[Rfam]
RNA: rpsB sRNA
Organism: Mesorhizobium sp. ORS 3428
RNA sequence: CACACACGGACUUUGGUGUCUGUCCGGGAGAAAUCCGGCUGAAACCUCCGGUGGCGUUCGAGGACAUCCGUCCGAAAAUGCCUGCGUCCGUGGAGGCCAACCGGAAAGGAACUAA
Numbered sequence: 001c002a003c004a005c006a007c008g009g010a011c012u013u014u015g016g017u018g019u020c021u022g023u024c025c026g027g028g029a030g031a032a033a034u035c036c037g038g039c040u041g042a043a044a045c046c047u048c049c050g051g052u053g054g055c056g057u058u059c060g061a062g063g064a065c066a067u068c069c070g071u072c073c074g075a076a077a078a079u080g081c082c083u084g085c086g087u088c089c090g091u092g093g094a095g096g097c098c099a100a101c102c103g104g105a106a107a108g109g110a111a112c113u114a115a
Stems, first nucleotide, its partner, number of pairs: 001095001003093001005092007015046002025037002028035001053082006